[Rfam]
RNA sequence: AACAACACUAUCAAUGAAUGGAUUUACGUUGCUGUUUUACAUAGGACGAGGAUAUGACAUCCUAUUACCAGCUAUCGCACGAAAUUAAUAGGAUAUGCCACGUCAUCAUCAUAGAUAGAACAACCACGUCAUCUCACUGGUGAAUCCAUUUAUCGAUAGUGUGGUU
Numbered sequence: 001a002a003c004a005a006c007a008c009u010a011u012c013a014a015u016g017a018a019u020g021g022a023u024u025u026a027c028g029u030u031g032c033u034g035u036u037u038u039a040c041a042u043a044g045g046a047c048g049a050g051g052a053u054a055u056g057a058c059a060u061c062c063u064a065u066u067a068c069c070a071g072c073u074a075u076c077g078c079a080c081g082a083a084a085u086u087a088a089u090a091g092g093a094u095a096u097g098c099c100a101c102g103u104c105a106u107c108a109u110c111a112u113a114g115a116u117a118g119a120a121c122a123a124c125c126a127c128g129u130c131a132u133c134u135c136a137c138u139g140g141u142g143a144a145u146c147c148a149u150u151u152a153u154c155g156a157u158a159g160u161g162u163g164g165u166u
Base pairs, nucleotide, nucleotide: 001166002165003164005162006161007160009158010157011156012155014153015152017150018149019148021146022145023144024143025142026141027140029126031124033122034121035120036119039116042113043112045110046109051104052103053102058097059096060093061092062091063090064089065088066087067086074085075084
Shown here is a 166-nucleotide sequence from Oryza meridionalis, a member of the family "MIR807 microRNA precursor family". The base pairs follow the family's consensus structure, which was predicted with WAR. The match comes from Rfam's covariance-model search (121 bits). Lineage of the source: Eukaryota > Streptophyta > Embryophyta > Mesangiospermae > Oryza.